[Rfam]
RNA sequence: UGGCGAAGGUCCCAGCAGAGAGAGUUGAACUCUGUAAAUUGAGAUCUCUCUAACACUAAUUUAUACCCUUCGCAUAUUAAGAUCCGUUUCGUAGGAUGCCCCAAUGAUAUCUUUAUUUUUGGUGCGUCUAUAAAACUCGGUUACAUUUCA
Numbered sequence: 001u002g003g004c005g006a007a008g009g010u011c012c013c014a015g016c017a018g019a020g021a022g023a024g025u026u027g028a029a030c031u032c033u034g035u036a037a038a039u040u041g042a043g044a045u046c047u048c049u050c051u052a053a054c055a056c057u058a059a060u061u062u063a064u065a066c067c068c069u070u071c072g073c074a075u076a077u078u079a080a081g082a083u084c085c086g087u088u089u090c091g092u093a094g095g096a097u098g099c100c101c102c103a104a105u106g107a108u109a110u111c112u113u114u115a116u117u118u119u120u121g122g123u124g125c126g127u128c129u130a131u132a133a134a135a136c137u138c139g140g141u142u143a144c145a146u147u148u149c150a
Stems, first nucleotide, its partner, number of pairs: 003073007011020001013018001022050003030043003034039001084140003089135001095128002098125002101122004

Small nucleolar RNA snoR145: a 150-nucleotide RNA sequence from Kingdonia uniflora. A search with the family's covariance model found it, with a score of 88 bits. Rfam classes the family as an H/ACA-box small nucleolar RNA. Rfam 15.1 lists 286 matches to the family in 194 species.